[Rfam]
RNA sequence: UUAGUUUAAAUCAUUGUAGGUUUAUACUUUGAAAAUAAAACUCACAUAAAAUAGUGGGAUAUAUUUUGAUUUCAUCCAA
Number, nucleotide and partner (000 for none) at each position: 001u079002u078003a000004g076005u000006u074007u000008a072009a071010a070011u069012c068013a067014u000015u000016g064017u063018a062019g000020g000021u000022u057023u056024a055025u053026a052027c000028u050029u049030u048031g047032a000033a000034a000035a000036u000037a000038a000039a000040a000041c000042u000043c000044a000045c000046a000047u031048a030049a029050a028051a000052u026053a025054g000055u024056g023057g022058g000059a000060u000061a000062u018063a017064u016065u000066u000067u013068g012069a011070u010071u009072u008073c000074a006075u000076c004077c000078a002079a001
The record is a 79-nucleotide RNA sequence from Medicago truncatula, which matches "MIR5269 microRNA precursor family" in Rfam. A search with the family's covariance model found it, with a score of 62 bits.